The family of this 31-nucleotide RNA from Frieseomelitta varia is "Iron response element II". Gene Ontology term of the family: response to iron ion. The family's RNA type in Rfam is cis-regulatory element. On this family, see Koeller et al., Proc Natl Acad Sci U S A 1989: "A cytosolic protein binds to structural elements within the iron regulatory region of the transferrin receptor mRNA". From the family's description: IRE, TFRC, SLC40A1, SDHB, SLC11A2, CDC42BPA, ACO2, ALAS2_H.SAPIENS, CDC14A, EPAS1, ALAS2, qoxD, Hao1, NDUFS1, transferrin, Aconitate. Lineage of the source: Eukaryota > Metazoa > Aculeata > Meliponini > Frieseomelitta.
Nucleotides: 031
Base pairs, nucleotide, nucleotide: 001031002030004028005027006026007025010023011022012021013020014018
Number, partner (000 for none) and nucleotide at each position: 001031a002030a003000u004028u005027u006026u007025u008000c009000a010023g011022a012021a013020a014018c015000a016000g017000u018014g019000u020013u021012u022011u023010c024000a025007a026006a027005a028004a029000c030002u031001u